[Rfam]
RNA sequence: GAAAAUCUACAGGGGUGCUUUGGCAAAAGCUGAGAGAAGUUUGCAAACUUCAACCCUUUGAACCUGAUACGGUUAGUACCGGCGUAGGGAAAGUUUAUGAAACAUCCAU
Dot-bracket structure: .....(..((((((..(((((....)))))......(((((....)))))...)))).....((((...(((......)))...))))....))..)............
This 109-nucleotide RNA sequence from Desulfotignum phosphitoxidans belongs to the Rfam family "TPP riboswitch aptamer (THI element)". It scores 73 bits against the family's covariance model. Lineage of the source: Bacteria > Thermodesulfobacteriota > Desulfobacteria > Desulfobacterales > Desulfotignum phosphitoxidans.